[Rfam]
RNA sequence: CACCGUCCGCAGUUUGUUGUGAUGUGCUCCAAGCAAUCAUGAGUCUGAAGCACCACGAGAAGCUGCAGAUGGAG
Numbered sequence: 001c002a003c004c005g006u007c008c009g010c011a012g013u014u015u016g017u018u019g020u021g022a023u024g025u026g027c028u029c030c031a032a033g034c035a036a037u038c039a040u041g042a043g044u045c046u047g048a049a050g051c052a053c054c055a056c057g058a059g060a061a062g063c064u065g066c067a068g069a070u071g072g073a074g
Stems, first nucleotide, its partner, number of pairs: 003072005009066007017058005024053005030047002033044002